[Rfam]
RNA sequence: GCCAAAUGAUGUUUAUUUGAUACAGGAGCCUUUAGUGCAGGGCGACUCUUAAUCUGCUACCCAUCACUGAUGGUU
Numbered sequence: 001g002c003c004a005a006a007u008g009a010u011g012u013u014u015a016u017u018u019g020a021u022a023c024a025g026g027a028g029c030c031u032u033u034a035g036u037g038c039a040g041g042g043c044g045a046c047u048c049u050u051a052a053u054c055u056g057c058u059a060c061c062c063a064u065c066a067c068u069g070a071u072g073g074u075u
Base pairs, nucleotide, nucleotide: 001074002073003072004071028038029037031035

Rfam assigns this 75-nucleotide sequence from Molossus molossus to the family "Small nucleolar RNA SNORD83". The base pairs follow the family's consensus structure, which was predicted with PFOLD. Rfam 15.1 lists 1,393 matches to the family in 644 species. Taxonomically the source falls in Molossus (Eukaryota, Euteleostomi, Theria, Laurasiatheria). For this family Rfam cites "Characterisation of the U83 and U84 small nucleolar RNAs: two novel 2'-O-ribose methylation guide RNAs that lack complementarities to ribosomal RNAs" (Jady and Kiss, Nucleic Acids Res, 2000). Rfam links the family to the GO terms nucleolus and RNA processing.